[Rfam]
RNA sequence: UAAUCUAAAUCGCUGAGUUCUUUCUAUGGCCUAGCCAUAGAAAGAAGCGGGGGACCCAACUUUAUGGGGUGAAUCUCCUUCUUAAGAGGGGCAAAACCCGUAUUAAGAAGGGGUAGGGUUACCUCUUCAACCCGAACCCGUCAGCUAACCUCGUAAGCGUACCGAGAGGAGAU
Numbered sequence: 001u002a003a004u005c006u007a008a009a010u011c012g013c014u015g016a017g018u019u020c021u022u023u024c025u026a027u028g029g030c031c032u033a034g035c036c037a038u039a040g041a042a043a044g045a046a047g048c049g050g051g052g053g054a055c056c057c058a059a060c061u062u063u064a065u066g067g068g069g070u071g072a073a074u075c076u077c078c079u080u081c082u083u084a085a086g087a088g089g090g091g092c093a094a095a096a097c098c099c100g101u102a103u104u105a106a107g108a109a110g111g112g113g114u115a116g117g118g119u120u121a122c123c124u125c126u127u128c129a130a131c132c133c134g135a136a137c138c139c140g141u142c143a144g145c146u147a148a149c150c151u152c153g154u155a156a157g158c159g160u161a162c163c164g165a166g167a168g169g170a171g172a173u
Base pairs, nucleotide, nucleotide: 011159012158013157014156018046019045020044021043022042023041024040025039026038027037028036029035030034047154048153049152050151051150052149057066058065067139068138069137075113076112077111078110079109080108081107082106083105084104085103116133117132118131119130